[Rfam]
RNA sequence: GCUCCUGCAAGAGUAAAGGGCACGCUUGGGACAGUGAGGCCAAGAAUGUUCUCAAAGCCCCUACACUUUCACCCUUUAGGAGAG
Numbered sequence: 001g002c003u004c005c006u007g008c009a010a011g012a013g014u015a016a017a018g019g020g021c022a023c024g025c026u027u028g029g030g031a032c033a034g035u036g037a038g039g040c041c042a043a044g045a046a047u048g049u050u051c052u053c054a055a056a057g058c059c060c061c062u063a064c065a066c067u068u069u070c071a072c073c074c075u076u077u078a079g080g081a082g083a084g
Base pairs, nucleotide, nucleotide: 002082003081004080005079006078007077009076010075011074013072014071015069016068017067018066020064024058025057026055027054028053029051030050031049032048033047
About this RNA
This 84-nucleotide RNA from Pipistrellus kuhlii belongs to the Rfam family "mir-350 microRNA precursor family". The family's consensus secondary structure was predicted with RNAalifold. On this family, see Kim et al., Proc Natl Acad Sci U S A 2004: "Identification of many microRNAs that copurify with polyribosomes in mammalian neurons". A search with the family's covariance model found it, with a score of 74 bits. Lineage of the source: Eukaryota > Opisthokonta > Euteleostomi > Dipnotetrapodomorpha > Pipistrellus.